[Rfam]
Shown here is a 125-nucleotide sequence from Scytalopus superciliaris, a member of the family "Small nucleolar RNA SNORD22". The literature on the family includes a 1994 paper in Science by Tycowski et al., "Requirement for intron-encoded U22 small nucleolar RNA in 18S ribosomal RNA maturation". Gene Ontology terms of the family: RNA processing and nucleolus. Pairs were carried over by alignment from the consensus structure, which was predicted with PFOLD. Lineage of the source: Eukaryota > Euteleostomi > Dinosauria > Neognathae > Scytalopus. It is annotated as a C/D-box small nucleolar RNA. The match comes from Rfam's covariance-model search (72 bits).

RNA sequence: CCCCCAUGAGGAAAAACUCCCUGUCUGACCCCCCUGGUGGGCCCAGAACCUGCCAAGGUGGAACCCACUGGUGCCCUCAGGGGGGACAGGAGGACAGCCUGUCCCAAGGGGACGGUCUGAGGGGG
Numbered sequence: 001c002c003c004c005c006a007u008g009a010g011g012a013a014a015a016a017c018u019c020c021c022u023g024u025c026u027g028a029c030c031c032c033c034c035u036g037g038u039g040g041g042c043c044c045a046g047a048a049c050c051u052g053c054c055a056a057g058g059u060g061g062a063a064c065c066c067a068c069u070g071g072u073g074c075c076c077u078c079a080g081g082g083g084g085g086a087c088a089g090g091a092g093g094a095c096a097g098c099c100u101g102u103c104c105c106a107a108g109g110g111g112a113c114g115g116u117c118u119g120a121g122g123g124g125g
Stems, first nucleotide, its partner, number of pairs: 001124004
Dot-bracket structure: ((((....................................................................................................................)))).